[Rfam]
RNA sequence: CCCACGCGCGCUUCAUGGACGUUUCCUCCCUAAACUACGGCGGCGUUUUUGGACGCCGCUUUUUUUUUGUUUUCA
Numbered sequence: 001c002c003c004a005c006g007c008g009c010g011c012u013u014c015a016u017g018g019a020c021g022u023u024u025c026c027u028c029c030c031u032a033a034a035c036u037a038c039g040g041c042g043g044c045g046u047u048u049u050u051g052g053a054c055g056c057c058g059c060u061u062u063u064u065u066u067u068u069g070u071u072u073u074c075a
Stems, first nucleotide, its partner, number of pairs: 002018002039060009